This 197-nucleotide sequence belongs to the Rfam family "psaA RNA".

RNA sequence: UCUAUGCUUCCGCCAGCGGUCCCCUCUUUGGGGCCCAAUGCUCCAGUGAGAGUCAGGGAUUUCUGUUCCUGGCAACCACUGGCGCCCGGGUGCGGUGACGCUCUGCUGAGCUGUGCCCGGGGCCCCGGCGAGCCAUUCGGUUUGCCGGAGGGGUGGCCCACCACCUCGAUCCCGUCCCUCGAGGAACGACUCGAUGA
Numbered sequence: 001u002c003u004a005u006g007c008u009u010c011c012g013c014c015a016g017c018g019g020u021c022c023c024c025u026c027u028u029u030g031g032g033g034c035c036c037a038a039u040g041c042u043c044c045a046g047u048g049a050g051a052g053u054c055a056g057g058g059a060u061u062u063c064u065g066u067u068c069c070u071g072g073c074a075a076c077c078a079c080u081g082g083c084g085c086c087c088g089g090g091u092g093c094g095g096u097g098a099c100g101c102u103c104u105g106c107u108g109a110g111c112u113g114u115g116c117c118c119g120g121g122g123c124c125c126c127g128g129c130g131a132g133c134c135a136u137u138c139g140g141u142u143u144g145c146c147g148g149a150g151g152g153g154u155g156g157c158c159c160a161c162c163a164c165c166u167c168g169a170u171c172c173c174g175u176c177c178c179u180c181g182a183g184g185a186a187c188g189a190c191u192c193g194a195u196g197a
Stems, first nucleotide, its partner, number of pairs: 018158003021153007030126007040085002043082006052073009087119003091115006100106002127146007164184006